[Rfam]
The family of this 158-nucleotide RNA sequence from Acaulospora morrowiae is "U11 spliceosomal RNA". Pairs were carried over by alignment from the consensus structure, which is taken from published work.

RNA sequence: UAAAAGGGCCGAGUGAGCGGUGGAAUUUCCAUAAUGGGAUUUCAUCGAAUCUCACACAGGCAAUUUUGCCUGUGCAGAAUGGUCAUCAAUACAUUUUGCCGGCAUAAUUUUUGAAGUAUUUGGAUGGCAGUCUGGCUCCGCUUUGAGCUGACGCUAUC
Numbered sequence: 001u002a003a004a005a006g007g008g009c010c011g012a013g014u015g016a017g018c019g020g021u022g023g024a025a026u027u028u029c030c031a032u033a034a035u036g037g038g039a040u041u042u043c044a045u046c047g048a049a050u051c052u053c054a055c056a057c058a059g060g061c062a063a064u065u066u067u068g069c070c071u072g073u074g075c076a077g078a079a080u081g082g083u084c085a086u087c088a089a090u091a092c093a094u095u096u097u098g099c100c101g102g103c104a105u106a107a108u109u110u111u112u113g114a115a116g117u118a119u120u121u122g123g124a125u126g127g128c129a130g131u132c133u134g135g136c137u138c139c140g141c142u143u144u145g146a147g148c149u150g151a152c153g154c155u156a157u158c
Stems, first nucleotide, its partner, number of pairs: 008103004014054004055074008075098007125156004130152003134148001136147003